[Rfam]
Description: Rfam assigns this 94-nucleotide RNA sequence from Miscanthus lutarioriparius to the family "MIR5387 microRNA precursor family". The family has 2 seed sequences and 1,029 matches in Rfam 15.1. The base pairs follow the family's consensus structure, which was predicted with RNAalifold. NCBI's taxonomy places the organism under Eukaryota, Streptophyta, Euphyllophyta, Poaceae, Miscanthus.
RNA sequence: UGGUGGCUCCAACCGGGACUAAAGGUCCCUGCCCCAACGGCUAUCGCGCCCGAUGUAGGUGGCGGGGACCUUUAGUCCCGGUUGGAGCCACCAA
Number, nucleotide and partner (000 for none) at each position: 001u000002g000003g091004u090005g089006g088007c087008u086009c085010c084011a083012a082013c081014c080015g079016g078017g077018a076019c075020u074021a073022a072023a071024g070025g069026u068027c067028c000029c065030u000031g000032c000033c000034c059035c058036a000037a056038c055039g000040g000041c000042u000043a000044u000045c000046g000047c000048g000049c000050c000051c000052g000053a000054u000055g038056u037057a000058g035059g034060u000061g000062g000063c000064g000065g029066g000067g027068a026069c025070c024071u023072u022073u021074a020075g019076u018077c017078c016079c015080g014081g013082u012083u011084g010085g009086a008087g007088c006089c005090a004091c003092c000093a000094a000